Annotation
A member of the RNA family "U7 small nuclear RNA" from Sapajus apella, 62 nucleotides long. The family's consensus secondary structure was predicted with PFOLD. A search with the family's covariance model found it, with a score of 62 bits. About the family: Animal histone pre-mRNAs are spliced by a different mechanism than nuclear pre-mRNAs and self-splicing introns.
RNA sequence: AAGUGUUACAGUGCUUUUAGAAUUUGUCUGGCAGGCUUUCCGUUUUUUGCCGGAAAGCCCCA
Numbered sequence: 001a002a003g004u005g006u007u008a009c010a011g012u013g014c015u016u017u018u019a020g021a022a023u024u025u026g027u028c029u030g031g032c033a034g035g036c037u038u039u040c041c042g043u044u045u046u047u048u049g050c051c052g053g054a055a056a057g058c059c060c061c062a
Stems, first nucleotide, its partner, number of pairs: 034059009044049001